RNA: rpsB sRNA
Organism: Ahrensia marina
RNA sequence: CACACACGGAGUCUGUGUGUUUUGGGGAGAAAUCCCAAAGCACCACCGGUUGCAACAUAGUGUUGCUUCUCUCCGUGGAGGCUAAACCGGAAAGGAAAAUA
Numbered sequence: 001c002a003c004a005c006a007c008g009g010a011g012u013c014u015g016u017g018u019g020u021u022u023u024g025g026g027g028a029g030a031a032a033u034c035c036c037a038a039a040g041c042a043c044c045a046c047c048g049g050u051u052g053c054a055a056c057a058u059a060g061u062g063u064u065g066c067u068u069c070u071c072u073c074c075g076u077g078g079a080g081g082c083u084a085a086a087c088c089g090g091a092a093a094g095g096a097a098a099a100u101a
Stems, first nucleotide, its partner, number of pairs: 001080001003078001005077006015043002023037002026035001052066006